[Rfam]
RNA sequence: GUGGGAAUCGCACGGCCGCAAAUCUGACCCGCCGCCGUUUCUGGUGGCUUCGAGAUUGCGGCAGUGC
Numbered sequence: 001g002u003g004g005g006a007a008u009c010g011c012a013c014g015g016c017c018g019c020a021a022a023u024c025u026g027a028c029c030c031g032c033c034g035c036c037g038u039u040u041c042u043g044g045u046g047g048c049u050u051c052g053a054g055a056u057u058g059c060g061g062c063a064g065u066g067c
Base pairs, nucleotide, nucleotide: 010067011066012065013064015062016061017060018059019058020057021056024054025053031048032047033046034045035044036043037042
S15-Halobacteria ribosomal protein leader: a 67-nucleotide sequence. The family's consensus secondary structure is taken from published work. Its Rfam clan is "Ribosomal Protein S15 Leader clan". For this family Rfam cites "Discovery of 20 novel ribosomal leader candidates in bacteria and archaea" (Eckert and Weinberg, BMC Microbiol, 2020).